[Rfam]
RNA sequence: CCGCCCGUCGCUACUACCGAUUGAGUGCACCAGUGAGGGCUUUGGACUGGCAUCCUUGGUGGGUUCUCCCCGCCUUGGCUUGAUGGGAAGAUGUCCGAGCUGGUGUACUUAGAGGAAGUAAAAGUCGUAACAAGGUUUCCGUAGGUGAACCUGCGGAAGGAUCAUUA
Numbered sequence: 001c002c003g004c005c006c007g008u009c010g011c012u013a014c015u016a017c018c019g020a021u022u023g024a025g026u027g028c029a030c031c032a033g034u035g036a037g038g039g040c041u042u043u044g045g046a047c048u049g050g051c052a053u054c055c056u057u058g059g060u061g062g063g064u065u066c067u068c069c070c071c072g073c074c075u076u077g078g079c080u081u082g083a084u085g086g087g088a089a090g091a092u093g094u095c096c097g098a099g100c101u102g103g104u105g106u107a108c109u110u111a112g113a114g115g116a117a118g119u120a121a122a123a124g125u126c127g128u129a130a131c132a133a134g135g136u137u138u139c140c141g142u143a144g145g146u147g148a149a150c151c152u153g154c155g156g157a158a159g160g161a162u163c164a165u166u167a
Stems, first nucleotide, its partner, number of pairs: 001134001003131001006127002009124001012120004017115002021111001023110012037096004042091002047086003051082002054078002058074001060072004136159010
Record summary: This 167-nucleotide part of an RNA from Gnathophausia zoea belongs to the Rfam family "Eukaryotic small subunit ribosomal RNA". It is one of the family's seed sequences. Its Rfam clan is "SSU clan". The family's consensus secondary structure is taken from published work. Taxonomically the source falls in Gnathophausia (Eukaryota, Altocrustacea, Mysidacea, Lophogastridae).